[Rfam]
RNA sequence: AAUGGAACCUGCAGUCGUCCCCCCGGGUGGGCAAAUGCAGAGCUGUCUUUUGUCCCCCAAUUGCAGUGGUCCUACAGAAACACGGAGGUCUCUGUCGGACUUACAGCAGCUGCUGAGCCCGAUCGUUCCCCUCCACACAGG
Numbered sequence: 001a002a003u004g005g006a007a008c009c010u011g012c013a014g015u016c017g018u019c020c021c022c023c024c025g026g027g028u029g030g031g032c033a034a035a036u037g038c039a040g041a042g043c044u045g046u047c048u049u050u051u052g053u054c055c056c057c058c059a060a061u062u063g064c065a066g067u068g069g070u071c072c073u074a075c076a077g078a079a080a081c082a083c084g085g086a087g088g089u090c091u092c093u094g095u096c097g098g099a100c101u102u103a104c105a106g107c108a109g110c111u112g113c114u115g116a117g118c119c120c121g122a123u124c125g126u127u128c129c130c131c132u133c134c135a136c137a138c139a140g141g
Base pairs, nucleotide, nucleotide: 004072005071006070009066010065011064012063026058027057029055030054031053032052037049084134085133086132087131088130092125094123095122096121098119100117101116102115103114
RNA: Small Cajal body specific RNA 3
Organism: Sorex araneus